[Rfam]
Nucleotides: 092
Base pairs, nucleotide, nucleotide: 006080007079008078009077010076012043013042014041015040017037018029019028020027021026048073049072050071051070054067055066056065057064
Number, partner (000 for none) and nucleotide at each position: 001000u002000a003000g004000g005000g006080u007079u008078g009077u010076c011000c012043u013042g014041g015040g016000g017037u018029g019028g020027c021026c022000u023000c024000u025000u026021g027020g028019c029018c030000u031000g032000a033000g034000a035000u036000u037017a038000c039000a040015c041014c042013c043012g044000u045000u046000a047000a048073c049072c050071u051070g052000a053000u054067c055066u056065g057064g058000a059000u060000a061000a062000u063000a064057c065056c066055a067054g068000c069000g070051u071050a072049g073048g074000g075000a076010g077009a078008c079007a080006g081000u082000c083000a084000u085000a086000u087000c088000u089000u090000a091000c092000a
TPP riboswitch aptamer (THI element): a 92-nucleotide RNA sequence from Sphaerochaeta halotolerans. Vitamin B(1) in its active form thiamin pyrophosphate (TPP) is an essential coenzyme that is synthesised by coupling of pyrimidine and thiazole moieties in bacteria. It scores 63 bits against the family's covariance model. Rfam links the family to the GO term thiamine pyrophosphate binding.